[Rfam]
RNA: Proteobacteria sRNA psRNA14
Organism: Nitrosomonas eutropha
RNA sequence: UGAAAUAAAUAACUAUUGGUUAAAAUCAGUGGUUGUUUAGUCUGGCUGACAGUUGUAAAAAAUAAAACUGUCAGCCAACGUCA
Numbered sequence: 001u002g003a004a005a006u007a008a009a010u011a012a013c014u015a016u017u018g019g020u021u022a023a024a025a026u027c028a029g030u031g032g033u034u035g036u037u038u039a040g041u042c043u044g045g046c047u048g049a050c051a052g053u054u055g056u057a058a059a060a061a062a063u064a065a066a067a068c069u070g071u072c073a074g075c076c077a078a079c080g081u082c083a
Stems, first nucleotide, its partner, number of pairs: 001083002003043001005041001006039015044076011056065001058063001